[Rfam]
RNA sequence: AACUUCGAGUAAUCGCGGUCGGCCCUGAGUCGGCUGAGGAAAGUCCACGCCCGCACAAGCUGAGAUGCUUGUAGUGUUCGCGCUUAGCCCAAUAAGCUAAGGUACUCUUUUAGAGUAACGGCGGCUCAAUGAUCUAAAGUCUUUUGACCAUGGUUAUAGCCUGAAAGUGCCACAGAGACGAGUCGACUGUGAAAACGGUCGAGUGGAACGGGGUAAACCCCACGAGCGAGCAACCCAAAUUUUGGUAGGGGAGUCCUAUGGCGGGAAAUGAACCUAAAGUAGGAGCGUCAGCAGAUAGAUGAUUACUGAUGAUUAAAAUGGACCUAGUUUUAAUCGGAACAAAACGUGGCUUAUAGAA
Numbered sequence: 001a002a003c004u005u006c007g008a009g010u011a012a013u014c015g016c017g018g019u020c021g022g023c024c025c026u027g028a029g030u031c032g033g034c035u036g037a038g039g040a041a042a043g044u045c046c047a048c049g050c051c052c053g054c055a056c057a058a059g060c061u062g063a064g065a066u067g068c069u070u071g072u073a074g075u076g077u078u079c080g081c082g083c084u085u086a087g088c089c090c091a092a093u094a095a096g097c098u099a100a101g102g103u104a105c106u107c108u109u110u111u112a113g114a115g116u117a118a119c120g121g122c123g124g125c126u127c128a129a130u131g132a133u134c135u136a137a138a139g140u141c142u143u144u145u146g147a148c149c150a151u152g153g154u155u156a157u158a159g160c161c162u163g164a165a166a167g168u169g170c171c172a173c174a175g176a177g178a179c180g181a182g183u184c185g186a187c188u189g190u191g192a193a194a195a196c197g198g199u200c201g202a203g204u205g206g207a208a209c210g211g212g213g214u215a216a217a218c219c220c221c222a223c224g225a226g227c228g229a230g231c232a233a234c235c236c237a238a239a240u241u242u243u244g245g246u247a248g249g250g251g252a253g254u255c256c257u258a259u260g261g262c263g264g265g266a267a268a269u270g271a272a273c274c275u276a277a278a279g280u281a282g283g284a285g286c287g288u289c290a291g292c293a294g295a296u297a298g299a300u301g302a303u304u305a306c307u308g309a310u311g312a313u314u315a316a317a318a319u320g321g322a323c324c325u326a327g328u329u330u331u332a333a334u335c336g337g338a339a340c341a342a343a344a345c346g347u348g349g350c351u352u353a354u355a356g357a358a
Stems, first nucleotide, its partner, number of pairs: 004358003007354001008307007016036006041352003045349005050230001052228003055072006078225003082221001083101006102119001103117006120220002123161004131155004139148002167218002169214003183202008234250003254284006285292002310336010
The family of this 358-nucleotide RNA sequence from Lapidilactobacillus dextrinicus is "Bacterial RNase P class B". Gene Ontology terms of the family: dimeric ribonuclease P complex, ribonuclease P activity and tRNA processing. Rfam's curators write: Ribonuclease P (RNase P) is a ubiquitous endoribonuclease, found in archaea, bacteria and eukarya as well as chloroplasts and mitochondria. Its best characterised activity is the generation of mature 5'-ends of tRNAs by cleaving the 5'-leader elements of precursor-tRNAs.